[Rfam]
RNA: Eukaryotic large subunit ribosomal RNA, nucleotides 774 to 1076
Organism: Podilymbus podiceps
RNA sequence: GAGUCUAACAUAUGUGCGAGUAUGCGGGUGGCAAACCUGUAUGCGUAAUGAAAGUAAGAGUAGGGAGAAGGGUAACAUCUUUUCAAAGGGAUGUUAUGCUUUGCACCUACGACCGACCACGAUCUCAGAGAGAGGUUUGAGUUGGAGCAUAUCUGUUAGGACCCGAAAGAUGGUGAACUAUGCCUGGGCAGGGCGAAGCCAGAGGAAACUCUGGUGGAGGUCCGUAGCGGUCCUGACGUGCAAAUCGGUCGUCCGACCCGGGUCUAGGGGCGAAAGACUAAUCGAACCAUCUAGUAGCUGGUU
Numbered sequence: 001g002a003g004u005c006u007a008a009c010a011u012a013u014g015u016g017c018g019a020g021u022a023u024g025c026g027g028g029u030g031g032c033a034a035a036c037c038u039g040u041a042u043g044c045g046u047a048a049u050g051a052a053a054g055u056a057a058g059a060g061u062a063g064g065g066a067g068a069a070g071g072g073u074a075a076c077a078u079c080u081u082u083u084c085a086a087a088g089g090g091a092u093g094u095u096a097u098g099c100u101u102u103g104c105a106c107c108u109a110c111g112a113c114c115g116a117c118c119a120c121g122a123u124c125u126c127a128g129a130g131a132g133a134g135g136u137u138u139g140a141g142u143u144g145g146a147g148c149a150u151a152u153c154u155g156u157u158a159g160g161a162c163c164c165g166a167a168a169g170a171u172g173g174u175g176a177a178c179u180a181u182g183c184c185u186g187g188g189c190a191g192g193g194c195g196a197a198g199c200c201a202g203a204g205g206a207a208a209c210u211c212u213g214g215u216g217g218a219g220g221u222c223c224g225u226a227g228c229g230g231u232c233c234u235g236a237c238g239u240g241c242a243a244a245u246c247g248g249u250c251g252u253c254c255g256a257c258c259c260g261g262g263u264c265u266a267g268g269g270g271c272g273a274a275a276g277a278c279u280a281a282u283c284g285a286a287c288c289a290u291c292u293a294g295u296a297g298c299u300g301g302u303u
Base pairs, nucleotide, nucleotide: 005159006158007157008156009155010154012152013151014150015149016148017147020044021043022042025039026038027037028036029035048055049054060110061109062108063107064106067102068101069100112142113141114139115138116137117135118134123129124128162301163300165298169291170290171289172288173287174286178267179266180265182263183262184261185260186259187258188257189255191223192222193221194220198215199214200213201212202211203210204209227252228251229250230249232248233247235246236245269279270278